[Rfam]
RNA sequence: UCGUCUGUCACUGGGGAGUAGUCUCCCUUCGAGCAAUUCGGAGGGGCUUGCGUCAACAUACUUGGUCAUUGUUUGACCAUGGUGCAAGCGGUUUCAAACUUGACAAGACCUUUGACCACAUUGCCUUCGGUUUGGCCGGGAGGGCUCUGUGGUCAUUGUUUUUUUGUCUGGCCUUGGAACCC
Dot-bracket structure: .........................(((.............))).((((((((((.......(((((.......)))))))))))))))(((((((..............................................................................))))))).
RNA: Manganese Mn2+ riboswitch aptamer (yybP-ykoY)
Organism: Rhodoferax sediminis